[Rfam]
A member of the RNA family "Archaeal large subunit ribosomal RNA" from Halorhabdus utahensis, 533 nucleotides of a longer RNA.
Rfam links the family to the GO terms structural constituent of ribosome and ribosome.
Pairs were carried over by alignment from the consensus structure, which is taken from published work.
Lineage of the source: Archaea > Methanobacteriati > Methanobacteriota > Halorhabdus > Halorhabdus utahensis.
Rfam 15.1 lists 2,955 matches to the family in 1,139 species.
A search with the family's covariance model found it, with a score of 2873 bits.
The family is grouped with related families in Rfam's "LSU clan".

RNA sequence: CUGCUGUACCAGCUGGUGGAUGGCUCGGCUCGGGCGCCGACGAAGGGCGUGCCAAGCUGCGAUAAGCUCAGGGGAGCCGCACGGAGGCGAAGAACCUGAGAUACCCGAAUGGGAACUCCUCACCGCAAUUGCCUUGCGCAAUGGGGAACGCCGGGAACUGAAACAUCUCAGUACCGGCAGGAAGAGAAAACGAAUGUGAUGUCGUUAGUAACCGCGAGUGAACGCGAUACAGUCCAAACCGAAGGCCUUACGGCCAAUGUGGUGUUCGGACUGGCACUCAUCGUCAGAACGUCUUCUUGAAGUCUCCUGGAACGGAGCGCGAUACAGGGUGACAGCCCCGUAACGAAGUCAAGUAUGACGUGCGCCAGUUCCCGAGUAUCGGGGGUUGGAAAUCCCUCGUGAAUUUGGCAGGCAUCUACUGCUAAGACUAAAUACGUCCCGAGACCGAUAGUGAACAAGUAGCGUGAGCGAACGCUGAAAAGUACCCUCAGAAGGGAGGCGAAAUAGGGCCUCAAAUCAGUUGGUGAUAGAGC
Dot-bracket structure: ......((((((((((.....(((..((((((((((........((((((........))).....((((((...(((.......)))......))))))...)))....(((....))).......(((((.....)))))......((((((.....((....))......))))).).........((....))...(((((.....((.....))....)))))..((((....(((..((((....))))....))).........((((......((((..........(.(...(.((((......)))))..(...).(((.......)))...).)...........))))...))))............((((((........)))))).......(((((.......)))))..)))).....)).)))))).))...............((....))....))...................................).....)))))))))).......